This 133-nucleotide sequence from Anaerococcus vaginalis belongs to the Rfam family "Streptococcus sRNA SpR18".
Pairs were carried over by alignment from the consensus structure, which was predicted with mfold.
RNA sequence: UUACAAGCUAUAAAGAGAAUGGGAAAUUGAUACUGGUACUCAAAUGGUACUGUAAGUAAAAAAAGAAUAACUUGAAUAAUAGUUCCAAGUGGUUUACAUUUGGACAAAAAAUUGAGAAUGUGAAUUAUUUUGA
Numbered sequence: 001u002u003a004c005a006a007g008c009u010a011u012a013a014a015g016a017g018a019a020u021g022g023g024a025a026a027u028u029g030a031u032a033c034u035g036g037u038a039c040u041c042a043a044a045u046g047g048u049a050c051u052g053u054a055a056g057u058a059a060a061a062a063a064a065g066a067a068u069a070a071c072u073u074g075a076a077u078a079a080u081a082g083u084u085c086c087a088a089g090u091g092g093u094u095u096a097c098a099u100u101u102g103g104a105c106a107a108a109a110a111a112u113u114g115a116g117a118a119u120g121u122g123a124a125u126u127a128u129u130u131u132g133a
Stems, first nucleotide, its partner, number of pairs: 007034001009032003013028002038126001044121003052068002082105002085103007

By type it is a small RNA.